[Rfam]
RNA sequence: UCCGUUCAUCUAUAUUUAAAGAUAUAGACGGAAGUAGUCGUAAGGCGAAGGAACGCAUU
Numbered sequence: 001u002c003c004g005u006u007c008a009u010c011u012a013u014a015u016u017u018a019a020a021g022a023u024a025u026a027g028a029c030g031g032a033a034g035u036a037g038u039c040g041u042a043a044g045g046c047g048a049a050g051g052a053a054c055g056c057a058u059u
Stems, first nucleotide, its partner, number of pairs: 003055005009028008031056001037046003
RNA: Glutamine riboswitch aptamer (glnA leader)